[Rfam]
RNA sequence: CGCCGACUGCGCUCUGCGGCAGGAGACAAUUCCCCGGGGCCUUACGCAUCCUAAGGGAGCUGGCGCUGACCGGGCUCGUGGGCCCGGACAACUGGCACCCACCUACUUCUGUAGGUUCCCGGGAUGCCGCACUCCACCGAUUGUCGCGGUUGGCAA
Numbered sequence: 001c002g003c004c005g006a007c008u009g010c011g012c013u014c015u016g017c018g019g020c021a022g023g024a025g026a027c028a029a030u031u032c033c034c035c036g037g038g039g040c041c042u043u044a045c046g047c048a049u050c051c052u053a054a055g056g057g058a059g060c061u062g063g064c065g066c067u068g069a070c071c072g073g074g075c076u077c078g079u080g081g082g083c084c085c086g087g088a089c090a091a092c093u094g095g096c097a098c099c100c101a102c103c104u105a106c107u108u109c110u111g112u113a114g115g116u117u118c119c120c121g122g123g124a125u126g127c128c129g130c131a132c133u134c135c136a137c138c139g140a141u142u143g144u145c146g147c148g149g150u151u152g153g154c155a156a
Base pairs, nucleotide, nucleotide: 002154003153004152005151006150007149008148009147010146011145012143015140017139018138019137031124032123033122034121036119037118038117039116040115041114055100056099057098059096060095061094062093063092070087071086072085073084074083
A member of the RNA family "6S / SsrS RNA" from Roseitalea porphyridii, 156 nucleotides long. Rfam describes the family as follows. E. coli 6S RNA was the first non coding RNA to be sequenced, but its function was unknown until recently. It consists of 184 nucleotides that fold into an extended hairpin structure with a large single-stranded internal bulge. The 6S RNA specifically associates with RNA polymerase holoenzyme containing the sigma70 specificity factor. This interaction represses expression from a sigma70-dependent promoter during stationary phase. 6S RNA homologs have recently been identified in most bacterial genomes. Pairs were carried over by alignment from the consensus structure, which is taken from published work. NCBI's taxonomy places the organism under Bacteria, Pseudomonadati, Alphaproteobacteria, Hyphomicrobiales, Roseitalea. The family's RNA type in Rfam is non-coding RNA gene.